[Rfam]
RNA: Small nucleolar RNA SNORA71
RNA sequence: CCCUGUAUUUGAAAGUGAUUGUGGGCUGCAGGUGCCCUGGUCAUUGAUACUGCAAGGAGAGGAUUUGAAAAACUUUUCCCGUGUUUGGAGGAUCCACACUCAUCCUUGCCAAACCCUGGUGCUUUCCCACA
Numbered sequence: 001c002c003c004u005g006u007a008u009u010u011g012a013a014a015g016u017g018a019u020u021g022u023g024g025g026c027u028g029c030a031g032g033u034g035c036c037c038u039g040g041u042c043a044u045u046g047a048u049a050c051u052g053c054a055a056g057g058a059g060a061g062g063a064u065u066u067g068a069a070a071a072a073c074u075u076u077u078c079c080c081g082u083g084u085u086u087g088g089a090g091g092a093u094c095c096a097c098a099c100u101c102a103u104c105c106u107u108g109c110c111a112a113a114c115c116c117u118g119g120u121g122c123u124u125u126c127c128c129a130c131a
Stems, first nucleotide, its partner, number of pairs: 001057002004054004009049001014045008023037004067126004083114005089107003